[Rfam]
RNA sequence: AAUAGUGUGAGGAGCAAAUGAAAUGAAAAAGCGCUUGGGGUCGAAACACGGCAAGACUCCCAGGCGCUUUUUCCA
Numbered sequence: 001a002a003u004a005g006u007g008u009g010a011g012g013a014g015c016a017a018a019u020g021a022a023a024u025g026a027a028a029a030a031g032c033g034c035u036u037g038g039g040g041u042c043g044a045a046a047c048a049c050g051g052c053a054a055g056a057c058u059c060c061c062a063g064g065c066g067c068u069u070u071u072u073c074c075a
Base pairs, nucleotide, nucleotide: 025073026072027071028070029069032066033065037061038060039059040057041056042055